This 106-nucleotide RNA from Sphingobium subterraneum belongs to the Rfam family "TPP riboswitch aptamer (THI element)".
[Rfam]
RNA sequence: CCGCCAUCCCCGGGGAGUCACGCGACUGAGAGGUAUGGGUAGCGCCAUACGACCCGCCGAACCUGAUCCAGCUAACACUGGCGGAGGGAGGGAGCGGUCUCGACCC
Number, nucleotide and partner (000 for none) at each position: 001c000002c000003g000004c000005c000006a000007u093008c092009c091010c090011c056012g055013g054014g053015g000016a000017g026018u025019c024020a000021c000022g000023c000024g019025a018026c017027u000028g000029a000030g000031a000032g000033g050034u049035a048036u047037g046038g000039g000040u000041a000042g000043c000044g000045c000046c037047a036048u035049a034050c033051g000052a000053c014054c013055c012056g011057c000058c000059g000060a000061a000062c087063c086064u085065g000066a000067u000068c081069c080070a079071g078072c000073u000074a000075a000076c000077a000078c071079u070080g069081g068082c000083g000084g000085a064086g063087g062088g000089a000090g010091g009092g008093a007094g000095c000096g000097g000098u000099c000100u000101c000102g000103a000104c000105c000106c000
Record summary: Vitamin B(1) in its active form thiamin pyrophosphate (TPP) is an essential coenzyme that is synthesised by coupling of pyrimidine and thiazole moieties in bacteria. The previously detected thiamin-regulatory element, thi box was extended, resulting in a new, highly conserved RNA secondary structure, the THI element, which is widely distributed in eubacteria and also occurs in some archaea. Analysis of operon structures identified a large number of new candidate thiamin-regulated genes, mostly transporters, in various prokaryotic organisms. The THI element is a riboswitch that directly binds to TPP to regulate gene expression through a variety of mechanisms in archaea, bacteria and eukaryotes. through a variety of mechanisms in archaea, bacteria and eukaryotes. The organism belongs to Sphingobium, within Bacteria. Its family is annotated with thiamine pyrophosphate binding in the Gene Ontology.